[Rfam]
RNA sequence: CCCCUAUCAGGAGCGACGCAGGGACCUGGCCCAGUGACCGUCGCAGCAACCGGCCCUCAUCACGGCACGGUGCUCAACGCCAGCCCACCUCAGGUCAACGAUGACCGACGGUCGGAACGAUACGGG
Numbered sequence: 001c002c003c004c005u006a007u008c009a010g011g012a013g014c015g016a017c018g019c020a021g022g023g024a025c026c027u028g029g030c031c032c033a034g035u036g037a038c039c040g041u042c043g044c045a046g047c048a049a050c051c052g053g054c055c056c057u058c059a060u061c062a063c064g065g066c067a068c069g070g071u072g073c074u075c076a077a078c079g080c081c082a083g084c085c086c087a088c089c090u091c092a093g094g095u096c097a098a099c100g101a102u103g104a105c106c107g108a109c110g111g112u113c114g115g116a117a118c119g120a121u122a123c124g125g126g
Base pairs, nucleotide, nucleotide: 001126002125003124005122006121007120008119013044014043015042016041017040021032022031023030026083027082028081029080045074046073047072048071050070051069052066054064079118084115085114087112088111089110
SAM riboswitch aptamer (S box leader): a 126-nucleotide sequence from Deinococcus maricopensis. The SAM riboswitch is found upstream of a number of genes which code for proteins involved in methionine or cysteine biosynthesis in Gram-positive bacteria.